The family of this 246-nucleotide RNA sequence from Podarcis muralis is "Small nucleolar RNA SNORA53". Rfam's curators write: The snoRNA ACA53 belongs to the H/ACA family of pseudouridylation guide snoRNAs. Rfam classes the family as an H/ACA-box small nucleolar RNA. A search with the family's covariance model found it, with a score of 184 bits. Taxonomically the source falls in Podarcis (Eukaryota, Eumetazoa, Lepidosauria, Laterata). Pairs were carried over by alignment from the consensus structure, which was predicted with RNAalifold.
RNA sequence: AACAUGCUCCCUUAGAUCCAUCUUUGUUAGAUGUCUCUUGUGCUGAGUUCUGCUUACAGCUUUGGUUUUGAGUAGUUCCAGCCAAGAGGGAUCAACAACUUUAUGGUUGUACAGUCAAAGAUGCUUGAGUCAUUGGCAUGUGAGAAUAAUAUACCUUCACUCUGGUCUUUUAUGUUCUGAUAGCAAUGGCUGUAAUACAAUACAUGUCAUUUUCCACUAUCAGGAUUUGGCUGGAUUGUGGACAUU
Numbered sequence: 001a002a003c004a005u006g007c008u009c010c011c012u013u014a015g016a017u018c019c020a021u022c023u024u025u026g027u028u029a030g031a032u033g034u035c036u037c038u039u040g041u042g043c044u045g046a047g048u049u050c051u052g053c054u055u056a057c058a059g060c061u062u063u064g065g066u067u068u069u070g071a072g073u074a075g076u077u078c079c080a081g082c083c084a085a086g087a088g089g090g091a092u093c094a095a096c097a098a099c100u101u102u103a104u105g106g107u108u109g110u111a112c113a114g115u116c117a118a119a120g121a122u123g124c125u126u127g128a129g130u131c132a133u134u135g136g137c138a139u140g141u142g143a144g145a146a147u148a149a150u151a152u153a154c155c156u157u158c159a160c161u162c163u164g165g166u167c168u169u170u171u172a173u174g175u176u177c178u179g180a181u182a183g184c185a186a187u188g189g190c191u192g193u194a195a196u197a198c199a200a201u202a203c204a205u206g207u208c209a210u211u212u213u214c215c216a217c218u219a220u221c222a223g224g225a226u227u228u229g230g231c232u233g234g235a236u237u238g239u240g241g242a243c244a245u246u
Stems, first nucleotide, its partner, number of pairs: 002141007011129005019123008027094001030093003036087004042082004047078001050075004056069001058067003095110006155241002158238002162234001164232004176224008187216003192207003